[Rfam]
RNA sequence: AGCCGUGUGGUGAGUACAAAGCGAACUAUUCUUUCGCCUUUUACUAAAGAAUACCGUGUGCUCGCCACAAUAAGCGGCAUACACCUAUUUUUGUAGGGCCACCCCAUUUACUUGGAGU
Numbered sequence: 001a002g003c004c005g006u007g008u009g010g011u012g013a014g015u016a017c018a019a020a021g022c023g024a025a026c027u028a029u030u031c032u033u034u035c036g037c038c039u040u041u042u043a044c045u046a047a048a049g050a051a052u053a054c055c056g057u058g059u060g061c062u063c064g065c066c067a068c069a070a071u072a073a074g075c076g077g078c079a080u081a082c083a084c085c086u087a088u089u090u091u092u093g094u095a096g097g098g099c100c101a102c103c104c105c106a107u108u109u110a111c112u113u114g115g116a117g118u
Base pairs, nucleotide, nucleotide: 003077004076005075006074008067009066010065011064012063013062014061015060016059017058018057027053028052029051030050031049032048033047034046101118102117104115105114106113
RNA: U5 spliceosomal RNA